mir-33 microRNA precursor family: a 66-nucleotide sequence from Liparis tanakae. On this family, see Li et al., BMC Genomics 2009: "Direct sequencing and expression analysis of a large number of miRNAs in Aedes aegypti and a multi-species survey of novel mosquito miRNAs". The organism belongs to Liparis, within Eukaryota. Gene Ontology terms of the family: gene silencing by miRNA and RISC complex.

RNA sequence: CUGUGGUGCAUUGUAGUUGCAUUGCAUGUUCUAAUGACGGUGCAAUGGAGCUGCUCUGCAACACAG
Numbered sequence: 001c002u003g004u005g006g007u008g009c010a011u012u013g014u015a016g017u018u019g020c021a022u023u024g025c026a027u028g029u030u031c032u033a034a035u036g037a038c039g040g041u042g043c044a045a046u047g048g049a050g051c052u053g054c055u056c057u058g059c060a061a062c063a064c065a066g
Base pairs, nucleotide, nucleotide: 001066002065003064004063006062007060008059009058010057013054014053015052016051021046022045023044024043025042026041027040